A member of the RNA family "U5 spliceosomal RNA" from Trichoplusia ni, 117 nucleotides long. The base pairs follow the family's consensus structure, which is taken from published work. U5 RNA is a component of both types of known spliceosome. It is annotated as a spliceosomal small nuclear RNA.
RNA sequence: GAACUCUAUUUUUCUUUUAAAACGCAGAAGUAUUUCGCCUUUCACUAAAGACUUCCGUGGAUUGGAACACUCAAAUGAGUUCUAUAUUUUUUGACAACUCUACUGCGGUAUUGCAUG
Number, nucleotide and partner (000 for none) at each position: 001g000002a000003a080004c079005u078006c077007u000008a000009u000010u067011u066012u065013u064014c000015u000016u061017u060018u059019a058020a000021a000022a000023c000024g000025c000026a000027g000028a054029a053030g052031u051032a000033u049034u048035u047036c000037g000038c000039c000040u000041u000042u000043c000044a000045c000046u000047a035048a034049a033050g000051a031052c030053u029054u028055c000056c000057g000058u019059g018060g017061a016062u000063u000064g013065g012066a011067a010068c000069a000070c000071u000072c000073a000074a000075a000076u000077g006078a005079g004080u003081u000082c000083u000084a000085u000086a000087u000088u000089u000090u000091u000092u000093g000094a000095c117096a000097a116098c000099u000100c113101u000102a111103c000104u000105g000106c000107g000108g000109u000110a000111u102112u000113g100114c000115a000116u097117g095